The record is an 80-nucleotide RNA from Oesophagostomum dentatum, which matches "HDV ribozyme from F. prausnitzii" in Rfam. Its family is annotated with catalytic activity in the Gene Ontology.
[Rfam]
RNA sequence: GGUCCUCAUAGCUGCCACCUCCACGUGGUGAGGACCGGGCAACGUUGGUGCUUCUGGAGCCACCAACGGCUAAGGCAGCG
Dot-bracket structure: (((((((.........(((.......))))))))))......((((((((..........))))))))............
Numbered sequence: 001g002g003u004c005c006u007c008a009u010a011g012c013u014g015c016c017a018c019c020u021c022c023a024c025g026u027g028g029u030g031a032g033g034a035c036c037g038g039g040c041a042a043c044g045u046u047g048g049u050g051c052u053u054c055u056g057g058a059g060c061c062a063c064c065a066a067c068g069g070c071u072a073a074g075g076c077a078g079c080g
Stems, first nucleotide, its partner, number of pairs: 001036007017029003043068008
The source organism's lineage runs through Eukaryota, Opisthokonta, Rhabditida, Rhabditina and Oesophagostomum.